The family of this 228-nucleotide RNA from Pseudomonas kuykendallii is "sRNA regulator of biofilms A". The source organism's lineage runs through Bacteria, Pseudomonadota, Gammaproteobacteria, Pseudomonadales and Pseudomonas. Rfam's curators write: Important for biofilm formation and pathogenicity. Pairs were carried over by alignment from the consensus structure, which was predicted with R-scape. It is annotated as a small RNA.
RNA sequence: GCCAGGGGCCUCGAAAGAGGUCUCCCGGGGCGUGCUCAGACCAACCAGUCGAGCCGUUCCGUGUCUGCGCCGCCCACAAGGCAGUUUGACGAGGUUGCGACUGGAACGAAGUCGUCCUGAGGGACGGGGAAGCGCUUGGCGUUACAACGAGAUGGACUGCAUGCUUCUGUCGGCGAACCGCCCGAUCGGUUCGGAAACCCGCUAGAACGCCGCCCGCCCCGCUCGUUC
Numbered sequence: 001g002c003c004a005g006g007g008g009c010c011u012c013g014a015a016a017g018a019g020g021u022c023u024c025c026c027g028g029g030g031c032g033u034g035c036u037c038a039g040a041c042c043a044a045c046c047a048g049u050c051g052a053g054c055c056g057u058u059c060c061g062u063g064u065c066u067g068c069g070c071c072g073c074c075c076a077c078a079a080g081g082c083a084g085u086u087u088g089a090c091g092a093g094g095u096u097g098c099g100a101c102u103g104g105a106a107c108g109a110a111g112u113c114g115u116c117c118u119g120a121g122g123g124a125c126g127g128g129g130a131a132g133c134g135c136u137u138g139g140c141g142u143u144a145c146a147a148c149g150a151g152a153u154g155g156a157c158u159g160c161a162u163g164c165u166u167c168u169g170u171c172g173g174c175g176a177a178c179c180g181c182c183c184g185a186u187c188g189g190u191u192c193g194g195a196a197a198c199c200c201g202c203u204a205g206a207a208c209g210c211c212g213c214c215c216g217c218c219c220c221g222c223u224c225g226u227u228c
Stems, first nucleotide, its partner, number of pairs: 005025004009020004029058004036053001040049002060155001063153004072082003084140002088136001090134002117129002163170002174193007201218001203216001205214001